The family of this 90-nucleotide sequence from Phytohabitans houttuyneae is "ZMP/ZTP riboswitch aptamer (pfl RNA motif)". It scores 60 bits against the family's covariance model. Taxonomically the source falls in Phytohabitans (Bacteria, Actinomycetes, Micromonosporales, Micromonosporaceae). The base pairs follow the family's consensus structure, which is taken from published work.
[Rfam]
RNA sequence: CGGCAGGGCCGUGACUGGCGCGUUCAGAUGGAUCACCAUCGUGGAGCGGCCCCGCAAAAGCGACGUUGGCCGCGCGCCUGGGCCCUUCCA
Numbered sequence: 001c002g003g004c005a006g007g008g009c010c011g012u013g014a015c016u017g018g019c020g021c022g023u024u025c026a027g028a029u030g031g032a033u034c035a036c037c038a039u040c041g042u043g044g045a046g047c048g049g050c051c052c053c054g055c056a057a058a059a060g061c062g063a064c065g066u067u068g069g070c071c072g073c074g075c076g077c078c079u080g081g082g083c084c085c086u087u088c089c090a
Stems, first nucleotide, its partner, number of pairs: 003055002006052007015043001017078005028039004068084004